[Rfam]
The family of this 122-nucleotide RNA from Thorsellia anophelis is "Ribosomal S15 leader".

RNA sequence: UAUUGGCGCUGAAUUAGAGAUCGGCGCCUUAAUUUUUUCAAUAAUAUAAUAUUUUAGGAGAGAACAUGUCUCUAACUGCAGAAGUGAAAGCACAAAUUGUUGCUGAAUAUGGUCGUGAUGCG
Numbered sequence: 001u002a003u004u005g006g007c008g009c010u011g012a013a014u015u016a017g018a019g020a021u022c023g024g025c026g027c028c029u030u031a032a033u034u035u036u037u038u039c040a041a042u043a044a045u046a047u048a049a050u051a052u053u054u055u056a057g058g059a060g061a062g063a064a065c066a067u068g069u070c071u072c073u074a075a076c077u078g079c080a081g082a083a084g085u086g087a088a089a090g091c092a093c094a095a096a097u098u099g100u101u102g103c104u105g106a107a108u109a110u111g112g113u114c115g116u117g118a119u120g121c122g
Stems, first nucleotide, its partner, number of pairs: 007026006057073004
Dot-bracket structure: ......((((((........))))))..............................((((.........)))).................................................

Its family is annotated with regulation of translation, ncRNA-mediated in the Gene Ontology. On this family, see Benard et al., Biochimie 1996: "Pseudoknot and translational control in the expression of the S15 ribosomal protein". Pairs were carried over by alignment from the consensus structure, which is taken from published work. From the family's description: The E. coli Ribosomal S15 gene 5' UTR can form two alternative structures. One that is a series of three hairpins, The other includes a pseudoknot. This structure causes translational regulation of the S15 protein. The alignment of this family contains only the final two hairpins which are conserved in other species, and also includes the complete region that forms the alternate structures.